[Rfam]
RNA: Lysine riboswitch aptamer
Organism: Peptacetobacter hominis
RNA sequence: ACUAAUGAUAGAGGCGCGAUAUUUAUCAGUAUACAUGGAUUCAGGGCAGGGCAGCCGUCUUUGUAGAAAGGAACUAUCGCCGAAGAAACAGAGAAUGCUUCAGAUCUGUUUCUGGGCUACCGCAGAAUAUGCGAUAGACUGUCACAUGAGUGGAGAGCUAUCUGGUAU
Numbered sequence: 001a002c003u004a005a006u007g008a009u010a011g012a013g014g015c016g017c018g019a020u021a022u023u024u025a026u027c028a029g030u031a032u033a034c035a036u037g038g039a040u041u042c043a044g045g046g047c048a049g050g051g052c053a054g055c056c057g058u059c060u061u062u063g064u065a066g067a068a069a070g071g072a073a074c075u076a077u078c079g080c081c082g083a084a085g086a087a088a089c090a091g092a093g094a095a096u097g098c099u100u101c102a103g104a105u106c107u108g109u110u111u112c113u114g115g116g117c118u119a120c121c122g123c124a125g126a127a128u129a130u131g132c133g134a135u136a137g138a139c140u141g142u143c144a145c146a147u148g149a150g151u152g153g154a155g156a157g158c159u160a161u162c163u164g165g166u167a168u
Stems, first nucleotide, its partner, number of pairs: 007162005016080006023073002032065004037060003084113009114140002117137003121133004142153004